[Rfam]
RNA: Streptomyces RNA 3920
Organism: Streptomyces sp. CB02488
RNA sequence: GAUAGGCCGCUGCGGCUACUGUGAUUGGACACUGACUCAGAGUCAACUAGCCUUGUCGUGGCGGUGCUUCGCGUGGGAACGCGGAGGGCCGGGACGGUCCGAGCCACGAGGGGGGAGGCUCGGGCCGUCCGUA
Numbered sequence: 001g002a003u004a005g006g007c008c009g010c011u012g013c014g015g016c017u018a019c020u021g022u023g024a025u026u027g028g029a030c031a032c033u034g035a036c037u038c039a040g041a042g043u044c045a046a047c048u049a050g051c052c053u054u055g056u057c058g059u060g061g062c063g064g065u066g067c068u069u070c071g072c073g074u075g076g077g078a079a080c081g082c083g084g085a086g087g088g089c090c091g092g093g094a095c096g097g098u099c100c101g102a103g104c105c106a107c108g109a110g111g112g113g114g115g116a117g118g119c120u121c122g123g124g125c126c127g128u129c130c131g132u133a
Stems, first nucleotide, its partner, number of pairs: 003012003015051004021032003033045004058074001061072004076090001093129013107114001